[Rfam]
RNA: Mesorhizobail RNA 7
Organism: Mesorhizobium wenxiniae
RNA sequence: UUGCUCCCCACUCAUCGCCGGCCGGCAAUCCGGCCAGGUCUUCGUCGGCUUUCAAUAUAUCAGUUUCGGUAUAGCAACCAUCAAAGAUCGCAUUUGACAGUUAUGGCAAAGAGCCACACCCUUUGCGCGUCCUGAGGCUUGACCGUCGCCAGCGAGAAAAUCGCAUCGACUGAAACCAGAGUCUCAGGGCCGAUUGGGAGGAUACCGGAGAUCGAUAUGGCGGCAGCGGCGCGUUUUGGCGCCCCUGCACGAUCGCGCGGCCCACGAAACCCAGGGUGCGCGUCCAUCAACAAGGGAGAGUUAA
Numbered sequence: 001u002u003g004c005u006c007c008c009c010a011c012u013c014a015u016c017g018c019c020g021g022c023c024g025g026c027a028a029u030c031c032g033g034c035c036a037g038g039u040c041u042u043c044g045u046c047g048g049c050u051u052u053c054a055a056u057a058u059a060u061c062a063g064u065u066u067c068g069g070u071a072u073a074g075c076a077a078c079c080a081u082c083a084a085a086g087a088u089c090g091c092a093u094u095u096g097a098c099a100g101u102u103a104u105g106g107c108a109a110a111g112a113g114c115c116a117c118a119c120c121c122u123u124u125g126c127g128c129g130u131c132c133u134g135a136g137g138c139u140u141g142a143c144c145g146u147c148g149c150c151a152g153c154g155a156g157a158a159a160a161u162c163g164c165a166u167c168g169a170c171u172g173a174a175a176c177c178a179g180a181g182u183c184u185c186a187g188g189g190c191c192g193a194u195u196g197g198g199a200g201g202a203u204a205c206c207g208g209a210g211a212u213c214g215a216u217a218u219g220g221c222g223g224c225a226g227c228g229g230c231g232c233g234u235u236u237u238g239g240c241g242c243c244c245c246u247g248c249a250c251g252a253u254c255g256c257g258c259g260g261c262c263c264a265c266g267a268a269a270c271c272c273a274g275g276g277u278g279c280g281c282g283u284c285c286a287u288c289a290a291c292a293a294g295g296g297a298g299a300g301u302u303a304a
Stems, first nucleotide, its partner, number of pairs: 066113001074107002076102003081097005126141002129138003143172001145170004153163003181190003196263003221255003241248002270296003274291001275288004